[Rfam]
RNA sequence: UACGAAAGAGGAUAGAGGAAGCCACAGCAACGUGGCUGGUCGAGAAAUUCUCC
Numbered sequence: 001u002a003c004g005a006a007a008g009a010g011g012a013u014a015g016a017g018g019a020a021g022c023c024a025c026a027g028c029a030a031c032g033u034g035g036c037u038g039g040u041c042g043a044g045a046a047a048u049u050c051u052c053c
Base pairs, nucleotide, nucleotide: 020037021036022035023034024033025032